RNA: HNH endonuclease-associated RNA and ORF (HEARO) RNA
RNA sequence: GUGACGACUCCACACAUUCCCCUGGGUACAGGGUGAAUGUGGGCUUCUUAAGAAAUUAGGAAGUACGUCAUUAGCCUAGGUGGUUCGUUACGCAAGAAAUCACCACGUUUAACCAGAAUAUAUAGGUACUUCAGAAUACAGAGAGUAGCGUCUCGAUCCCUAGUUCUGAACUCUACGACCAGUGAUUAAACAUUUCUACAGGAAGAGGAAAAGUGUUGCUGGUAUAAAACCUGGAUAAACAUUGGCAAAGGGAACCACGC
Dot-bracket structure: ((((((...((((.........................)).))...(((((....))))).....))))))..(((.((((((((............)))))))..(((((.((((.........((..((((((((.........................))))))))....)).(((((((((...((.(((((.(.....).))))).))))))))))).......)))).))))).).)))..............